Rfam assigns this 117-nucleotide RNA sequence from Pontibacillus yanchengensis to the family "SAM riboswitch aptamer (S box leader)". Rfam links the family to the GO term regulation of gene expression. Lineage of the source: Bacteria > Bacilli > Bacillaceae > Pontibacillus > Pontibacillus yanchengensis. The SAM riboswitch is found upstream of a number of genes which code for proteins involved in methionine or cysteine biosynthesis in Gram-positive bacteria. The SAM riboswitch acts at the level of transcription termination control.
RNA sequence: UUCUUAUCCAGAGAGGCGGAGGGACUGGCCCUUUGAUGCCCGGCAACCAUUCAAUCAAUUUAUUAUUAAUUGGAACGGUGCCAAUUCCUGCAAGGUGAAGACCUUGGGAGAUGAGAG
Numbered sequence: 001u002u003c004u005u006a007u008c009c010a011g012a013g014a015g016g017c018g019g020a021g022g023g024a025c026u027g028g029c030c031c032u033u034u035g036a037u038g039c040c041c042g043g044c045a046a047c048c049a050u051u052c053a054a055u056c057a058a059u060u061u062a063u064u065a066u067u068a069a070u071u072g073g074a075a076c077g078g079u080g081c082c083a084a085u086u087c088c089u090g091c092a093a094g095g096u097g098a099a100g101a102c103c104u105u106g107g108g109a110g111a112u113g114a115g116a117g
Stems, first nucleotide, its partner, number of pairs: 001117008013041001015040003021031003025090001027088002042082004047078002050074006086109001091106006